[Rfam]
Nucleotides: 214
Stems, first nucleotide, its partner, number of pairs: 001038002003035001005033003013027006043069004048064006078213005097201012111164003120154006127146008166188005172182001174180002
Number, partner (000 for none) and nucleotide at each position: 001038a002037c003035g004000a005033c006032c007031u008000u009000a010000c011000u012000u013027g014026a015025a016024c017023a018022g019000g020000a021000u022018c023017u024016g025015u026014u027013c028000u029000a030000u031007a032006g033005g034000c035003u036000c037002g038001u039000a040000c041000c042000u043069c044068u045067g046066u047000a048064u049063c050062c051061u052060u053059u054000a055000u056000c057000a058000c059053a060052a061051a062050g063049g064048a065000g066046a067045c068044a069043g070000g071000a072000a073000c074000u075000c076000a077000a078213g079212u080211c081210u082209g083000g084000u085000g086000g087000a088000u089000g090000a091000a092000u093000c094000a095000u096000g097201a098200c099199c100198g101197u102196g103195u104194g105193a106192u107191c108190a109000g110000a111164g112163c113162g114000u115000g116000a117000u118000u119000a120154a121153c122152g123151g124150c125149u126000g127146g128145a129144g130143g131142a132141u133140c134139u135000u136000u137000c138000u139134g140133g141132g142131u143130u144129c145128u146127c147000a148000g149125g150124g151123c152122u153121g154120u155000a156000g157000a158000g159000g160000a161000u162113c163112g164111u165000a166188c167187c168186u169185a170184g171000g172182c173000u174180g175179c176000c177000u178000a179175g180174c181000u182172g183000a184170c185169u186168g187167g188166g189000a190108u191107g192106a193105u194104c195103g196102c197101a198100u199099g200098g201097u202000u203000g204000u205000c206000u207000g208000a209082c210081a211080g212079a213078c214000u